[Rfam]
RNA sequence: ACUCUUGUAUUCACUUCAUUCCACAUGUGUUGGAGUGGAUUAGGGUGGAACUUAAACUAAUUUACACCCCAAUCCAUCUCAACACAAGUGGAUUGACAUAGAUACAAUG
Numbered sequence: 001a002c003u004c005u006u007g008u009a010u011u012c013a014c015u016u017c018a019u020u021c022c023a024c025a026u027g028u029g030u031u032g033g034a035g036u037g038g039a040u041u042a043g044g045g046u047g048g049a050a051c052u053u054a055a056a057c058u059a060a061u062u063u064a065c066a067c068c069c070c071a072a073u074c075c076a077u078c079u080c081a082a083c084a085c086a087a088g089u090g091g092a093u094u095g096a097c098a099u100a101g102a103u104a105c106a107a108u109g
Base pairs, nucleotide, nucleotide: 005107006106007105008104009103010102011101013099016096017095018094020092021091022090023089024088026086027085028084029083030082031081032080035077036076037075038074039073040072041071043069045067046066047065
Dot-bracket structure: ....(((((((.(..(((.(((((.(((((((..(((((((.(.(((.................))).).)))))))..))))))).))))).)))..).)))))))..